[Rfam]
RNA sequence: AAGCCCUGCGUGGGAGAGCGCGGAGCUGUCCGCCGCCGAAGGAGCAACCCACCCCGGAAACUCUCAGGCAUCCAGGACCGCACAGGGAUC
Numbered sequence: 001a002a003g004c005c006c007u008g009c010g011u012g013g014g015a016g017a018g019c020g021c022g023g024a025g026c027u028g029u030c031c032g033c034c035g036c037c038g039a040a041g042g043a044g045c046a047a048c049c050c051a052c053c054c055c056g057g058a059a060a061c062u063c064u065c066a067g068g069c070a071u072c073c074a075g076g077a078c079c080g081c082a083c084a085g086g087g088a089u090c
Stems, first nucleotide, its partner, number of pairs: 006085003010081004020033004035069003038065002042063003048057002
Overview:
The family of this 90-nucleotide RNA sequence from Elstera litoralis is "Glycine riboswitch aptamer". A search with the family's covariance model found it, with a score of 62 bits. The source organism's lineage runs through Bacteria, Pseudomonadati, Alphaproteobacteria, Rhodospirillales and Elstera. From the family's description: This family represents the bacterial glycine riboswitch.